Background: mir-450 microRNA precursor family: a 78-nucleotide sequence from Rattus norvegicus. Gene Ontology terms of the family: miRNA-mediated post-transcriptional gene silencing and RISC complex. Rfam's curators put it in the seed alignment. On this family, see Ahn et al., Mol Hum Reprod 2010: "MicroRNA transcriptome in the newborn mouse ovaries determined by massive parallel sequencing". Pairs were carried over by alignment from the consensus structure, which was predicted with RNAalifold.
[Rfam]
RNA sequence: GCGGAGCUGUUUUUGCGAUGUGUUCCUAAUGUGUGCUACAAUUAUAUUGGGAACAUUUUGCAUAAAUAGUUUUACAUC
Numbered sequence: 001g002c003g004g005a006g007c008u009g010u011u012u013u014u015g016c017g018a019u020g021u022g023u024u025c026c027u028a029a030u031g032u033g034u035g036c037u038a039c040a041a042u043u044a045u046a047u048u049g050g051g052a053a054c055a056u057u058u059u060g061c062a063u064a065a066a067u068a069g070u071u072u073u074a075c076a077u078c
Stems, first nucleotide, its partner, number of pairs: 004072007014062005020056014